[Rfam]
RNA sequence: GGCGUAAAGGGUGCGUAGGCGGACAUGUAAGUCAGGUGUGAAAACUGCGGGCUCAACUCGCAGCCUGCACUUGAAACUAUGUGUCUGGAGUUUGGGAGAGGCAAGUGGAAUUCCAGGUGUAGCGGUGAAAUGCGUAGAUAUCUGGAGGAACACCAGUGGCGAAGGCGACUUGCUGGCCUAAAACUGACGCUGAGGCACGAAAGCGUGGGUAGUGAACGGGAUUAGAUACCCCGGUAAUCCACGCCCUAAACGUUGUCUACCAGUUGUUGGGGGUUUUAACCCUCAGUAACGAACCUAACGGAUUAAGUAGACCGCCUGGGGACUAUGCUCGCAAGAGUGAAACUCAAAGGAAU
Numbered sequence: 001g002g003c004g005u006a007a008a009g010g011g012u013g014c015g016u017a018g019g020c021g022g023a024c025a026u027g028u029a030a031g032u033c034a035g036g037u038g039u040g041a042a043a044a045c046u047g048c049g050g051g052c053u054c055a056a057c058u059c060g061c062a063g064c065c066u067g068c069a070c071u072u073g074a075a076a077c078u079a080u081g082u083g084u085c086u087g088g089a090g091u092u093u094g095g096g097a098g099a100g101g102c103a104a105g106u107g108g109a110a111u112u113c114c115a116g117g118u119g120u121a122g123c124g125g126u127g128a129a130a131u132g133c134g135u136a137g138a139u140a141u142c143u144g145g146a147g148g149a150a151c152a153c154c155a156g157u158g159g160c161g162a163a164g165g166c167g168a169c170u171u172g173c174u175g176g177c178c179u180a181a182a183a184c185u186g187a188c189g190c191u192g193a194g195g196c197a198c199g200a201a202a203g204c205g206u207g208g209g210u211a212g213u214g215a216a217c218g219g220g221a222u223u224a225g226a227u228a229c230c231c232c233g234g235u236a237a238u239c240c241a242c243g244c245c246c247u248a249a250a251c252g253u254u255g256u257c258u259a260c261c262a263g264u265u266g267u268u269g270g271g272g273g274u275u276u277u278a279a280c281c282c283u284c285a286g287u288a289a290c291g292a293a294c295c296u297a298a299c300g301g302a303u304u305a306a307g308u309a310g311a312c313c314g315c316c317u318g319g320g321g322a323c324u325a326u327g328c329u330c331g332c333a334a335g336a337g338u339g340a341a342a343c344u345c346a347a348a349g350g351a352a353u
Base pairs, nucleotide, nucleotide: 001316002315003314009313011198012197013196014195016192018191019190020189022085023084024083025082026081027080028079030078031077032074033073034072035071036070037069038068039067040066045063046062047061048060049059050058051057089185090184091183092181093180094179095178096177100174101173102172103171104170105169106168107151111147112146113145114144115143116142117141118140122133123132124131159166160165203244204243205242206241207240208239212238213237217233218232219231220230255312256311257310258309259308260307263290264289265288266287267286268285269284270283271282272281273280274279294301295300318345319344320343327338328337329336330335
RNA: Bacterial small subunit ribosomal RNA, nucleotides 538 to 890